[Rfam]
RNA sequence: ACCCAAAGCCAGGUCUGCUGACCUCCAUGAGUCCAGUGUUCAUGAUGGUGGUUGGGCCCUGAACUAGGGGUCUGGAGUCCUGGGUUUGAAAUCA
Dot-bracket structure: ........(((((.((.(.((((((.....((.(((.((((............)))).))).))..)))))).).)).)))))...........
Numbered sequence: 001a002c003c004c005a006a007a008g009c010c011a012g013g014u015c016u017g018c019u020g021a022c023c024u025c026c027a028u029g030a031g032u033c034c035a036g037u038g039u040u041c042a043u044g045a046u047g048g049u050g051g052u053u054g055g056g057c058c059c060u061g062a063a064c065u066a067g068g069g070g071u072c073u074g075g076a077g078u079c080c081u082g083g084g085u086u087u088g089a090a091a092u093c094a
Stems, first nucleotide, its partner, number of pairs: 009083005015077002018074001020072006031064002034061003038057004
Source information: A member of the RNA family "mir-345 microRNA precursor family" from Chrysochloris asiatica, 94 nucleotides long. The organism belongs to Chrysochloris, within Eukaryota.